The record is a 133-nucleotide RNA from Dulcicalothrix desertica, which matches "c-di-AMP riboswitch aptamer (ydaO/yuaA leader)" in Rfam. A search with the family's covariance model found it, with a score of 59 bits. Taxonomically the source falls in Dulcicalothrix desertica (Bacteria, Nostocales, Calotrichaceae, Dulcicalothrix). About the family: This family represents a conserved RNA structure found upstream of the ydaO and yuaA genes in Bacillus subtilis and related genes in other bacteria.
RNA sequence: UUAAGUGGGUAGCUUAAUCCUGAUUUGUCGAGGAGAUGUCAGGAACGGAGGAACCAUCGUUUGGGGCUAAUAUUUAUAGAGGCACCUUCCAGCCUUCGCCCGUCAGCUAACUCCGUAAGCCGUGGAAGGAACU
Numbered sequence: 001u002u003a004a005g006u007g008g009g010u011a012g013c014u015u016a017a018u019c020c021u022g023a024u025u026u027g028u029c030g031a032g033g034a035g036a037u038g039u040c041a042g043g044a045a046c047g048g049a050g051g052a053a054c055c056a057u058c059g060u061u062u063g064g065g066g067c068u069a070a071u072a073u074u075u076a077u078a079g080a081g082g083c084a085c086c087u088u089c090c091a092g093c094c095u096u097c098g099c100c101c102g103u104c105a106g107c108u109a110a111c112u113c114c115g116u117a118a119g120c121c122g123u124g125g126a127a128g129g130a131a132c133u
Stems, first nucleotide, its partner, number of pairs: 012120003018044007045116006055063002064101003072077001080095004